The record is a 67-nucleotide RNA from Streptomyces lavendulae, which matches "Streptomyces RNA 2736" in Rfam. The family's RNA type in Rfam is small RNA. Pairs were carried over by alignment from the consensus structure. Rfam describes the family as follows. Identified by deep sequencing of transcriptome at the end of exponential growth phase. Appears smaller on northern blot than sequencing transcript. This indicates processing step. Streptomyces specific. It scores 53 bits against the family's covariance model.
RNA sequence: CGCCCCGGCGCGGAUCCCGUGGGGGGAAUCCGCUGCCGGGGAAAAGGAAAGCGCCCCGACCGUCGAC
Dot-bracket structure: (((((.(...((((((((.....))).)))))...).))).....((......))........))..